[Rfam]
RNA: c-di-GMP-I riboswitch aptamer
RNA sequence: CUGCGAUAACGGCAAACUUAUUGAAAGGUAAGGACGCAGAGCCACGGGUCUAAGGUUUUAUGACUAUGAUCGCCGGGUUACCGAA
Numbered sequence: 001c002u003g004c005g006a007u008a009a010c011g012g013c014a015a016a017c018u019u020a021u022u023g024a025a026a027g028g029u030a031a032g033g034a035c036g037c038a039g040a041g042c043c044a045c046g047g048g049u050c051u052a053a054g055g056u057u058u059u060a061u062g063a064c065u066a067u068g069a070u071c072g073c074c075g076g077g078u079u080a081c082c083g084a085a
Base pairs, nucleotide, nucleotide: 012037013036017032018031019030020029021028022027040079041078042077043076045075046074047073048070049069050068055064056063057062